RNA sequence: UGCAGAGGAUGUGAAAGAAUAUUUGCCAUCUGAGAGACAGUGACAACAUUCCAAACCACCAAGAUCUCUGAUGCA
Numbered sequence: 001u002g003c004a005g006a007g008g009a010u011g012u013g014a015a016a017g018a019a020u021a022u023u024u025g026c027c028a029u030c031u032g033a034g035a036g037a038c039a040g041u042g043a044c045a046a047c048a049u050u051c052c053a054a055a056c057c058a059c060c061a062a063g064a065u066c067u068c069u070g071a072u073g074c075a
Stems, first nucleotide, its partner, number of pairs: 001075004